[Rfam]
Shown here is a 557-nucleotide part of an RNA from Methylotuvimicrobium alcaliphilum, a member of the family "Bacterial small subunit ribosomal RNA".
RNA sequence: AAACUGAAGAGUUUGAUCAUGGCUCAGAUUGAACGCUGGCGGUAUGCUUAACACAUGCAAGUCGAACGGUAACGGUCCUUCGGGAGCCGACGAGUGGCGGACGGGUGAGUAACGCGUAGGAAUCUGCCUGGUAGUGGGGGACAACUCGGAGAAAUCCGAGCUAAUACCGCAUACGCCCUGAGGGGGAAAGCGGGGGAUCUUCGGACCUCGCGCUAUCAGAUGAGCCUGCGUUGGAUUAGCUAGUUGGUGGGGUAAAGGCCUACCAAGGCGACGAUCCAUAGCUGGUCUGAGAGGACGAUCAGCCACACUGGGACUGAGACACGGCCCAGACUCCUACGGGAGGCAGCAGUGGGGAAUAUUGGACAAUGGGCGCAAGCCUGAUCCAGCAAUACCGCGUGUGUGAAGAAGGCCUGAGGGUUGUAAAGCACUUUCAAUAGGGAGGAAAAAGCGUUGGUUAAUAGCCGAUGCCUUGACAUUACCUAUAGAAGAAGCACCGGCUAACUCCGUGCCAGCAGCCGCGGUAAUACGGAGGGUGCGAGCGUUAAUCGGAAUUACUG
Numbered sequence: 001a002a003a004c005u006g007a008a009g010a011g012u013u014u015g016a017u018c019a020u021g022g023c024u025c026a027g028a029u030u031g032a033a034c035g036c037u038g039g040c041g042g043u044a045u046g047c048u049u050a051a052c053a054c055a056u057g058c059a060a061g062u063c064g065a066a067c068g069g070u071a072a073c074g075g076u077c078c079u080u081c082g083g084g085a086g087c088c089g090a091c092g093a094g095u096g097g098c099g100g101a102c103g104g105g106u107g108a109g110u111a112a113c114g115c116g117u118a119g120g121a122a123u124c125u126g127c128c129u130g131g132u133a134g135u136g137g138g139g140g141a142c143a144a145c146u147c148g149g150a151g152a153a154a155u156c157c158g159a160g161c162u163a164a165u166a167c168c169g170c171a172u173a174c175g176c177c178c179u180g181a182g183g184g185g186g187a188a189a190g191c192g193g194g195g196g197a198u199c200u201u202c203g204g205a206c207c208u209c210g211c212g213c214u215a216u217c218a219g220a221u222g223a224g225c226c227u228g229c230g231u232u233g234g235a236u237u238a239g240c241u242a243g244u245u246g247g248u249g250g251g252g253u254a255a256a257g258g259c260c261u262a263c264c265a266a267g268g269c270g271a272c273g274a275u276c277c278a279u280a281g282c283u284g285g286u287c288u289g290a291g292a293g294g295a296c297g298a299u300c301a302g303c304c305a306c307a308c309u310g311g312g313a314c315u316g317a318g319a320c321a322c323g324g325c326c327c328a329g330a331c332u333c334c335u336a337c338g339g340g341a342g343g344c345a346g347c348a349g350u351g352g353g354g355a356a357u358a359u360u361g362g363a364c365a366a367u368g369g370g371c372g373c374a375a376g377c378c379u380g381a382u383c384c385a386g387c388a389a390u391a392c393c394g395c396g397u398g399u400g401u402g403a404a405g406a407a408g409g410c411c412u413g414a415g416g417g418u419u420g421u422a423a424a425g426c427a428c429u430u431u432c433a434a435u436a437g438g439g440a441g442g443a444a445a446a447a448g449c450g451u452u453g454g455u456u457a458a459u460a461g462c463c464g465a466u467g468c469c470u471u472g473a474c475a476u477u478a479c480c481u482a483u484a485g486a487a488g489a490a491g492c493a494c495c496g497g498c499u500a501a502c503u504c505c506g507u508g509c510c511a512g513c514a515g516c517c518g519c520g521g522u523a524a525u526a527c528g529g530a531g532g533g534u535g536c537g538a539g540c541g542u543u544a545a546u547c548g549g550a551a552u553u554a555c556u557g
Stems, first nucleotide, its partner, number of pairs: 009025005027547004032543006039395006045388002047353001052351003056348003061098003066095002069091002074087001076085003105306003114231007123223002128219007136170001138168002145160006176185003190211006232278003239269003244266008281303004285296004308329005331342004359385001361384003367380005398428004408419004432488001434483005442474001448468006491536005502531005512519002
Record summary:
On this family, see Yusupov et al., Science 2001: "Crystal structure of the ribosome at 5.5 A resolution". Its Rfam clan is "SSU clan". The match comes from Rfam's covariance-model search (1596 bits).